[Rfam]
RNA sequence: UACGUUCAUCACUCUUUUAGAGUGACGGAAGUAGAUGAAAGUCGAAGGAACGCAUG
Numbered sequence: 001u002a003c004g005u006u007c008a009u010c011a012c013u014c015u016u017u018u019a020g021a022g023u024g025a026c027g028g029a030a031g032u033a034g035a036u037g038a039a040a041g042u043c044g045a046a047g048g049a050a051c052g053c054a055u056g
Stems, first nucleotide, its partner, number of pairs: 003052005009025005028053001034043003

Rfam assigns this 56-nucleotide RNA sequence to the family "Glutamine riboswitch aptamer (glnA leader)".
A reference for the family is Ames and Breaker (2011), "Bacterial aptamers that selectively bind glutamine", RNA Biol.
Gene Ontology term of the family: glutamine binding.
Rfam's curators put it in the seed alignment.